[Rfam]
RNA sequence: GAGGAUAAACGCGCUCAUAAUAGACGGACUGGACCCGGGGGCGGUACCCGGCGGCUCCACCAAAAACGCUCAGACUAGCUGAGCGCUUUUGAUGGGGCCGAAAUAGGAUCGACAGACGUUCAAAAGGGUUAGCUUUCUUCCGUAUGGGUACCGUUAAAUGCCCGUUCUUUAUAAUUGCAAAUGACAAUUAUUCUGAGGAAUUUGCCCUAGCUGCGUAA
Number, nucleotide and partner (000 for none) at each position: 001g139002a138003g137004g136005a135006u000007a000008a000009a000010c000011g000012c000013g129014c128015u127016c126017a000018u000019a000020a000021u000022a000023g000024a000025c118026g117027g000028a000029c115030u114031g113032g000033a000034c000035c051036c050037g049038g048039g047040g000041g000042c000043g000044g000045u000046a000047c039048c038049c037050g036051g035052c100053g099054g098055c097056u096057c095058c094059a000060c000061c000062a000063a000064a000065a000066a000067c000068g000069c000070u000071c000072a000073g000074a000075c000076u000077a000078g000079c000080u000081g000082a000083g000084c000085g000086c000087u000088u000089u000090u000091g000092a000093u000094g058095g057096g056097g055098c054099c053100g052101a000102a000103a000104u000105a000106g000107g000108a000109u000110c000111g000112a000113c031114a030115g029116a000117c026118g025119u000120u000121c000122a000123a000124a000125a000126g016127g015128g014129u013130u000131a000132g000133c000134u000135u005136u004137c003138u002139u001140c153141c000142g151143u150144a000145u000146g000147g000148g000149u000150a143151c142152c000153g140154u000155u000156a000157a000158a000159u000160g000161c000162c000163c000164g000165u000166u000167c000168u000169u000170u000171a000172u000173a000174a000175u000176u000177g000178c000179a000180a000181a000182u000183g000184a000185c000186a000187a000188u000189u000190a000191u000192u000193c000194u000195g000196a000197g000198g000199a000200a000201u000202u000203u000204g000205c000206c000207c000208u000209a000210g000211c000212u000213g000214c000215g000216u000217a000218a000